RNA sequence: AUCCUCUGGUUCCCUUUCCCAUCAGAUCUGAAUGCUGGUCUUGGCGGUCAUAAAAGAAGAGCAAGUGAUAACUGAAGCUGGCCUCACAGCAUUGCAGACUAGCCUAUAGCAUGUGGCCUAGUUUCAAACAGGA
Numbered sequence: 001a002u003c004c005u006c007u008g009g010u011u012c013c014c015u016u017u018c019c020c021a022u023c024a025g026a027u028c029u030g031a032a033u034g035c036u037g038g039u040c041u042u043g044g045c046g047g048u049c050a051u052a053a054a055a056g057a058a059g060a061g062c063a064a065g066u067g068a069u070a071a072c073u074g075a076a077g078c079u080g081g082c083c084u085c086a087c088a089g090c091a092u093u094g095c096a097g098a099c100u101a102g103c104c105u106a107u108a109g110c111a112u113g114u115g116g117c118c119u120a121g122u123u124u125c126a127a128a129c130a131g132g133a
Base pairs, nucleotide, nucleotide: 004059005058007056019047020046022044023043025040026039027038028037078121079120080119081118083116084115093111094110095109

The family of this 133-nucleotide sequence from Castor canadensis is "Small nucleolar RNA SNORA61". ACA61 is a member of the H/ACA class of snoRNA that guide the sites of modification of uridines to pseudouridines. Its family is annotated with RNA processing and nucleolus in the Gene Ontology. The source organism's lineage runs through Eukaryota, Tetrapoda, Amniota, Boreoeutheria and Castor. By type it is an H/ACA-box small nucleolar RNA.